[Rfam]
RNA sequence: UGGAAGUCGGGCGGACGGUGCUGUCGCCAACCCGGUCAGGUCCGGAAGGAAGCAGCCGUAACGAAUUUGUAUCGGGUCGUUCCGGCUUCCACGUC
Numbered sequence: 001u002g003g004a005a006g007u008c009g010g011g012c013g014g015a016c017g018g019u020g021c022u023g024u025c026g027c028c029a030a031c032c033c034g035g036u037c038a039g040g041u042c043c044g045g046a047a048g049g050a051a052g053c054a055g056c057c058g059u060a061a062c063g064a065a066u067u068u069g070u071a072u073c074g075g076g077u078c079g080u081u082c083c084g085g086c087u088u089c090c091a092c093g094u095c
Base pairs, nucleotide, nucleotide: 004088005087006086009082010081011080012079013078016074017073018072019071020070021069024064025063026062033058034057035056036055041050042049043048
Shown here is a 95-nucleotide sequence from Zymomonas mobilis, a member of the family "Bacterial small signal recognition particle RNA".
The source organism's lineage runs through Bacteria, Sphingomonadales, Zymomonadaceae, Zymomonas and Zymomonas mobilis subsp. mobilis.
Pairs were carried over by alignment from the consensus structure, which is taken from published work.
It is annotated as a non-coding RNA gene.
It is one of the family's seed sequences.